[Rfam]
RNA: mir-3492 microRNA precursor family
RNA sequence: AGUCUUCUGAAUCCAUGUCGAGGUUUCAUCAGACACCAGACCAUCAGUACUAAUGAGACUCUCAAGAUAAGUGAAGCG
Number, nucleotide and partner (000 for none) at each position: 001a000002g077003u076004c000005u074006u073007c000008u071009g000010a000011a068012u067013c066014c000015a000016u064017g063018u000019c000020g061021a060022g059023g000024u058025u057026u056027c055028a054029u053030c000031a000032g000033a000034c000035a000036c000037c000038a000039g000040a000041c000042c000043a000044u000045c000046a000047g000048u000049a000050c000051u000052a000053a029054u028055g027056a026057g025058a024059c022060u021061c020062u000063c017064a016065a000066g013067a012068u011069a000070a000071g008072u000073g006074a005075a000076g003077c002078g000